This 142-nucleotide sequence from Myroides phaeus belongs to the Rfam family "Bacteroidete tryptophan peptide leader RNA". It is annotated as a cis-regulatory leader. Lineage of the source: Bacteria > Pseudomonadati > Flavobacteriia > Flavobacteriales > Myroides. Gene Ontology terms of the family: S-adenosylmethionine metabolic process and regulation of gene expression.
RNA sequence: CACUCAAUACAAAGAGAAAAAUGAAUUUAAUUCUUACAAAUACUUGGUGGUGGACUAAACUUACGUCAGACGUCGUGAGCAGUCCUUGCUAUGUAUAUAUGAGUUAAUAAGAAAUAAUAUAUAUAAUUGAAAAAGGCUUGUC
Numbered sequence: 001c002a003c004u005c006a007a008u009a010c011a012a013a014g015a016g017a018a019a020a021a022u023g024a025a026u027u028u029a030a031u032u033c034u035u036a037c038a039a040a041u042a043c044u045u046g047g048u049g050g051u052g053g054a055c056u057a058a059a060c061u062u063a064c065g066u067c068a069g070a071c072g073u074c075g076u077g078a079g080c081a082g083u084c085c086u087u088g089c090u091a092u093g094u095a096u097a098u099a100u101g102a103g104u105u106a107a108u109a110a111g112a113a114a115u116a117a118u119a120u121a122u123a124u125a126a127u128u129g130a131a132a133a134a135g136g137c138u139u140g141u142c
Stems, first nucleotide, its partner, number of pairs: 036100001038098001040096004045091003049086002052083001060079003063073003